This 161-nucleotide sequence from Araneus ventricosus belongs to the Rfam family "U1 spliceosomal RNA". The family's RNA type in Rfam is spliceosomal small nuclear RNA. From the family's description: U1 is a small nuclear RNA (snRNA) component of the spliceosome (involved in pre-mRNA splicing). Its 5' end forms complementary base pairs with the 5' splice junction, thus defining the 5' donor site of an intron.

RNA sequence: AUACUUACCUGGCACUGGGGAUGCCUCGAUCAUGAAGGAGGCUCCCCCGAGCAGAGGCCCUUCAUUGCACUUCGGAGGGUUGACGUUCGCCACAUCCGCAAAUCGCGGUUGCUUGGGGUGUACAAUUUUUGGUAGUUGGGACUGCGUACGCGCUGUCCCUG
Number, nucleotide and partner (000 for none) at each position: 001a000002u000003a000004c000005u000006u000007a000008c000009c000010u000011g000012g121013c120014a119015c118016u000017g047018g046019g045020g044021a043022u000023g042024c041025c040026u039027c038028g000029a000030u000031c000032a000033u000034g000035a000036a000037g000038g027039a026040g025041g024042c023043u021044c020045c019046c018047c017048c000049g088050a087051g086052c085053a000054g084055a000056g081057g080058c079059c000060c077061u076062u075063c074064a000065u000066u000067g000068c000069a000070c000071u000072u000073c000074g063075g062076a061077g060078g000079g058080u057081u056082g000083a000084c054085g052086u051087u050088c049089g000090c116091c115092a114093c000094a110095u000096c000097c107098g106099c000100a000101a000102a000103u000104c000105g000106c098107g097108g000109u000110u094111g000112c000113u000114u092115g091116g090117g000118g015119u014120g013121u012122a000123c000124a000125a000126u000127u000128u000129u000130u000131g000132g000133u000134a000135g000136u000137u000138g159139g158140g157141a156142c000143u000144g153145c152146g151147u000148a000149c000150g000151c146152g145153c144154u000155g000156u141157c140158c139159c138160u000161g000
Notes: The family has 100 seed sequences and 40,184 matches in Rfam 15.1.